[Rfam]
RNA sequence: CGCAGAGUAGACACAUGCGCGUUAAGUGCCGGCUGAACAGGGAGUUGUCAGCCAGACGAAAAGAGUUUCUUGCGGUGCAUGAGUCGCAUCCCGCUGCA
Numbered sequence: 001c002g003c004a005g006a007g008u009a010g011a012c013a014c015a016u017g018c019g020c021g022u023u024a025a026g027u028g029c030c031g032g033c034u035g036a037a038c039a040g041g042g043a044g045u046u047g048u049c050a051g052c053c054a055g056a057c058g059a060a061a062a063g064a065g066u067u068u069c070u071u072g073c074g075g076u077g078c079a080u081g082a083g084u085c086g087c088a089u090c091c092c093g094c095u096g097c098a
Stems, first nucleotide, its partner, number of pairs: 002097004010085003014081006020074003026057002029055001031053006040091003044087001061071004

This 98-nucleotide RNA sequence from Roseburia hominis belongs to the Rfam family "THF (Tetrahydrofolate) riboswitch aptamer". Gene Ontology term of the family: tetrahydrofolate metabolic process. NCBI's taxonomy places the organism under Bacteria, Bacillati, Clostridia, Lachnospirales, Roseburia hominis. It scores 88 bits against the family's covariance model.